[Rfam]
RNA sequence: UACAUACAGAACAAGUCGACGUUAGCUAGUGACAUCGCGGCUUGGAAAUGGUCAUUGGCUGGACUGGGCGUUGAUGGGUGCUAGCUAGAUGACGGCAGCAAUCGUUGCGGCUACAGCAUCGAGCGACCCGAGUGAUGUCAUGUCAACUUGGACUCAAUUGAGCAGGCAGCGCCGAACCAAGAAGCAGUAUCGGGACCCAUCUCGCGUUGGUGUCAAAGUUUCGUGCUUGUCUGGUGCUGUGGGCUGGCGGAGCUGACUGCGAGGUUGAGACUUGCUUUGCGGCGCUUGCGUGUUGAAAAUCAUUCGCCUUCAAAGGACAGGCUUGGGGAUAUGAGCAGUCCUGGUUGUCAUGGCCGUCAGAAAUGUUGGCCGGGACAACCCCCCGUGCUGGAGG
Numbered sequence: 001u002a003c004a005u006a007c008a009g010a011a012c013a014a015g016u017c018g019a020c021g022u023u024a025g026c027u028a029g030u031g032a033c034a035u036c037g038c039g040g041c042u043u044g045g046a047a048a049u050g051g052u053c054a055u056u057g058g059c060u061g062g063a064c065u066g067g068g069c070g071u072u073g074a075u076g077g078g079u080g081c082u083a084g085c086u087a088g089a090u091g092a093c094g095g096c097a098g099c100a101a102u103c104g105u106u107g108c109g110g111c112u113a114c115a116g117c118a119u120c121g122a123g124c125g126a127c128c129c130g131a132g133u134g135a136u137g138u139c140a141u142g143u144c145a146a147c148u149u150g151g152a153c154u155c156a157a158u159u160g161a162g163c164a165g166g167c168a169g170c171g172c173c174g175a176a177c178c179a180a181g182a183a184g185c186a187g188u189a190u191c192g193g194g195a196c197c198c199a200u201c202u203c204g205c206g207u208u209g210g211u212g213u214c215a216a217a218g219u220u221u222c223g224u225g226c227u228u229g230u231c232u233g234g235u236g237c238u239g240u241g242g243g244c245u246g247g248c249g250g251a252g253c254u255g256a257c258u259g260c261g262a263g264g265u266u267g268a269g270a271c272u273u274g275c276u277u278u279g280c281g282g283c284g285c286u287u288g289c290g291u292g293u294u295g296a297a298a299a300u301c302a303u304u305c306g307c308c309u310u311c312a313a314a315g316g317a318c319a320g321g322c323u324u325g326g327g328g329a330u331a332u333g334a335g336c337a338g339u340c341c342u343g344g345u346u347g348u349c350a351u352g353g354c355c356g357u358c359a360g361a362a363a364u365g366u367u368g369g370c371c372g373g374g375a376c377a378a379c380c381c382c383c384c385g386u387g388c389u390g391g392a393g394g
Stems, first nucleotide, its partner, number of pairs: 194214003197210003216228004

Rfam assigns this 394-nucleotide part of an RNA from Cordyceps javanica to the family "Ascomycota telomerase RNA". The base pairs follow the family's consensus structure. The family has 4 seed sequences and 475 matches in Rfam 15.1. It is annotated as a non-coding RNA gene.